[Rfam]
RNA sequence: AGCGGCAUGGAUGCCGCUCGUGCUACACAGAAGCGAUGUUUCGUGCCCAGCACGAAACUCGCAGCCAAAAGUGUACACGGAUGUACACUUUUGGCGCAGAU
Numbered sequence: 001a002g003c004g005g006c007a008u009g010g011a012u013g014c015c016g017c018u019c020g021u022g023c024u025a026c027a028c029a030g031a032a033g034c035g036a037u038g039u040u041u042c043g044u045g046c047c048c049a050g051c052a053c054g055a056a057a058c059u060c061g062c063a064g065c066c067a068a069a070a071g072u073g074u075a076c077a078c079g080g081a082u083g084u085a086c087a088c089u090u091u092u093g094g095c096g097c098a099g100a101u
Base pairs, nucleotide, nucleotide: 001018002017003016004015005014006013034061035060036059038058039057040056041055042054043053044052045051064097065096066093067092068091069090070089071088072087073086074085075084076083

This 101-nucleotide sequence from Treponema vincentii belongs to the Rfam family "TD-2 RNA". Its Rfam clan is "TD (Treponema denticola) motifs". It scores 67 bits against the family's covariance model. The literature on the family includes a 2007 paper in Nucleic Acids Res by Weinberg et al., "Identification of 22 candidate structured RNAs in bacteria using the CMfinder comparative genomics pipeline". It is annotated as a small RNA.